Shown here is a 151-nucleotide RNA from Rasamsonia emersonii, a member of the family "A. fumigatus sRNA Afu_254".
By type it is a small RNA.
The literature on the family includes a 2008 paper in Nucleic Acids Res by Jochl et al., "Small ncRNA transcriptome analysis from Aspergillus fumigatus suggests a novel mechanism for regulation of protein synthesis".
RNA sequence: AUCGAACACUGCUUAACUGAGAAUUCUCUAUCCUCCUUCAAACAAAACCAAUCUAUCAACCUGCCAACAUGAACCCCUGCACCUGCAACUGCUGCAACGGCAACUGCAACUCCUGCGCCUGCUCCAGCUGCACUGUAAGUCAAACCUCCAU
Numbered sequence: 001a002u003c004g005a006a007c008a009c010u011g012c013u014u015a016a017c018u019g020a021g022a023a024u025u026c027u028c029u030a031u032c033c034u035c036c037u038u039c040a041a042a043c044a045a046a047a048c049c050a051a052u053c054u055a056u057c058a059a060c061c062u063g064c065c066a067a068c069a070u071g072a073a074c075c076c077c078u079g080c081a082c083c084u085g086c087a088a089c090u091g092c093u094g095c096a097a098c099g100g101c102a103a104c105u106g107c108a109a110c111u112c113c114u115g116c117g118c119c120u121g122c123u124c125c126a127g128c129u130g131c132a133c134u135g136u137a138a139g140u141c142a143a144a145c146c147u148c149c150a151u
Base pairs, nucleotide, nucleotide: 078102079101080100085095086094087093106131107130108129115122116121

The match comes from Rfam's covariance-model search (78 bits).